[Rfam]
RNA sequence: CUUGGGCUUCCGUGAUGAUUUACAAUCAUAAGCAUAGUUCAUCUGAAUUAUUCAUGAAGACAACUACGUAUUUUAUAGUCUUUCGCUCCCAUCUGAUUUUGCCCUUU
Numbered sequence: 001c002u003u004g005g006g007c008u009u010c011c012g013u014g015a016u017g018a019u020u021u022a023c024a025a026u027c028a029u030a031a032g033c034a035u036a037g038u039u040c041a042u043c044u045g046a047a048u049u050a051u052u053c054a055u056g057a058a059g060a061c062a063a064c065u066a067c068g069u070a071u072u073u074u075a076u077a078g079u080c081u082u083u084c085g086c087u088c089c090c091a092u093c094u095g096a097u098u099u100u101g102c103c104c105u106u107u
Stems, first nucleotide, its partner, number of pairs: 004104004
Dot-bracket structure: ...((((.............................................................................................))))...
Shown here is a 107-nucleotide RNA sequence from Neurospora crassa, a member of the family "Small nucleolar RNA snR60/Z15/Z230/Z193/J17". The source organism's lineage runs through Eukaryota, Dikarya, saccharomyceta, leotiomyceta and Neurospora. The family has 23 seed sequences and 3,592 matches in Rfam 15.1.